[Rfam]
RNA sequence: GCGAAGUGACGAUAGAAAUUCAAUGGUCUGUCAAUCCACUGAGAUACACUGUGAUGUAAUCUUGAAUCUCUACAGGUUCUGAUCGC
Numbered sequence: 001g002c003g004a005a006g007u008g009a010c011g012a013u014a015g016a017a018a019u020u021c022a023a024u025g026g027u028c029u030g031u032c033a034a035u036c037c038a039c040u041g042a043g044a045u046a047c048a049c050u051g052u053g054a055u056g057u058a059a060u061c062u063u064g065a066a067u068c069u070c071u072a073c074a075g076g077u078u079c080u081g082a083u084c085g086c
Stems, first nucleotide, its partner, number of pairs: 001086004

Annotation: The record is an 86-nucleotide RNA from Acer saccharum, which matches "Small nucleolar RNA snoR14" in Rfam. The literature on the family includes a 2001 paper in RNA by Brown et al., "Multiple snoRNA gene clusters from Arabidopsis". Rfam classes the family as a C/D-box small nucleolar RNA. The organism belongs to Acer, within Eukaryota.